[Rfam]
RNA sequence: CCCCGGGGUCCUCUUGUCUGAGCCCCAGAAAGAGGAGAGAGUGCUGGGUCACAGAAGAGGGUCUGGGGG
Numbered sequence: 001c002c003c004c005g006g007g008g009u010c011c012u013c014u015u016g017u018c019u020g021a022g023c024c025c026c027a028g029a030a031a032g033a034g035g036a037g038a039g040a041g042u043g044c045u046g047g048g049u050c051a052c053a054g055a056a057g058a059g060g061g062u063c064u065g066g067g068g069g
Base pairs, nucleotide, nucleotide: 001069002068003067004066006064007063008062009061010060011059012058013057014056017055018054019053020052022050024048025047026046027045028044
RNA: mir-2366 microRNA precursor family
Organism: Bos taurus